[Rfam]
RNA sequence: AGCCUUUGUGUUGCCCAUUCACCUUUGGUUACUAGUGAAUGUGGUGUCAAAAGAGGCAUAAGUUAAUGCUUUGCAGCCUUUUCUCACCCUGGAGUUUGGUAUCUUGGGUGUAGAGGCUGCGUAAGUAACAGGA
Dot-bracket structure: .((((((.((.(((((((((((............))))))).)))).))..))))))..........((((((((((....(.(.((((..((........))...)).)).).))))))).)))).......
Numbered sequence: 001a002g003c004c005u006u007u008g009u010g011u012u013g014c015c016c017a018u019u020c021a022c023c024u025u026u027g028g029u030u031a032c033u034a035g036u037g038a039a040u041g042u043g044g045u046g047u048c049a050a051a052a053g054a055g056g057c058a059u060a061a062g063u064u065a066a067u068g069c070u071u072u073g074c075a076g077c078c079u080u081u082u083c084u085c086a087c088c089c090u091g092g093a094g095u096u097u098g099g100u101a102u103c104u105u106g107g108g109u110g111u112a113g114a115g116g117c118u119g120c121g122u123a124a125g126u127a128a129c130a131g132g133a
Stems, first nucleotide, its partner, number of pairs: 002057006009049002012046004016041007068126004072121006082115001084113001086111002088108002092103002
Overview
The family of this 133-nucleotide RNA from Neotoma lepida is "Small nucleolar RNA SNORA13". The family has 50 seed sequences and 1,034 matches in Rfam 15.1. Rfam describes the family as follows. ACA13 is a member of the H/ACA class of snoRNA that guide the sites of modification of uridines to pseudouridines. Pairs were carried over by alignment from the consensus structure, which was predicted with CMfinder. The family's RNA type in Rfam is H/ACA-box small nucleolar RNA.